The family of this 63-nucleotide sequence from Streptomyces morookaense is "Streptomyces RNA 2736". The base pairs follow the family's consensus structure. Rfam describes the family as follows. Identified by deep sequencing of transcriptome at the end of exponential growth phase. Appears smaller on northern blot than sequencing transcript. This indicates processing step. Streptomyces specific. A reference for the family is Vockenhuber et al. (2011), "Deep sequencing-based identification of small non-coding RNAs in Streptomyces coelicolor", RNA Biol. NCBI's taxonomy places the organism under Bacteria, Actinomycetota, Actinomycetes, Streptomycetaceae, Streptomyces.

Nucleotides: 063
Stems, first nucleotide, its partner, number of pairs: 003037005009030005014024003043054002
Number, partner (000 for none) and nucleotide at each position: 001000c002000u003037c004036c005035c006034g007033g008000a009030c010029g011028g012027a013026u014024c015023c016022c017000g018000u019000g020000g021000g022016g023015g024014g025000a026013a027012u028011c029010c030009g031000g032000g033007c034006c035005g036004g037003g038000g039000u040000u041000a042000c043054g044053g045000a046000a047000a048000a049000g050000c051000g052000c053044c054043c055000c056000g057000c058000u059000c060000c061000g062000a063000c